The record is an 87-nucleotide RNA, which matches "Small nucleolar RNA SNORD35" in Rfam. By type it is a C/D-box small nucleolar RNA. The family's consensus secondary structure was predicted with PFOLD. Rfam describes the family as follows. U35 is a C/D box snoRNA located in intron 6 of ribosomal protein L13A and intron 3 of ribosomal protein S11 in humans and at homologous positions in mouse and chicken ribosomal protein genes. U35 guides the methylation of 2'-O-ribose sites in 28S rRNA. It is one of the family's seed sequences.
[Rfam]
RNA sequence: GGCAAGUGAUGUCUGUUCUCACGAUGGUCUUCAGAUGUCCUCUAGGGCACUGCUGAGACAGCCAGUUGACAAAGCUGAUGCCAUAAA
Number, nucleotide and partner (000 for none) at each position: 001g082002g081003c080004a079005a000006g000007u000008g000009a000010u000011g000012u000013c000014u000015g000016u000017u000018c000019u000020c000021a000022c000023g000024a000025u000026g000027g000028u000029c000030u000031u000032c000033a000034g000035a000036u000037g000038u000039c000040c000041u000042c000043u000044a000045g000046g000047g000048c000049a000050c000051u000052g000053c000054u000055g000056a000057g000058a000059c000060a000061g000062c000063c000064a000065g000066u000067u000068g000069a000070c000071a000072a000073a000074g000075c000076u000077g000078a000079u004080g003081c002082c001083a000084u000085a000086a000087a000